[Rfam]
A member of the RNA family "skipping-rope RNA", 81 nucleotides long.

RNA sequence: AGAAGCUGAGGACGGAACAGGUAUCCGUCACCCUAUCUUCUUAUAGAUAGUUGGAGAUGCAGAUUACCACCUGCCUCUUCU
Numbered sequence: 001a002g003a004a005g006c007u008g009a010g011g012a013c014g015g016a017a018c019a020g021g022u023a024u025c026c027g028u029c030a031c032c033c034u035a036u037c038u039u040c041u042u043a044u045a046g047a048u049a050g051u052u053g054g055a056g057a058u059g060c061a062g063a064u065u066a067c068c069a070c071c072u073g074c075c076u077c078u079u080c081u
Stems, first nucleotide, its partner, number of pairs: 001081005008075001011029005020068004031054001033050006059074004

It is one of the family's seed sequences.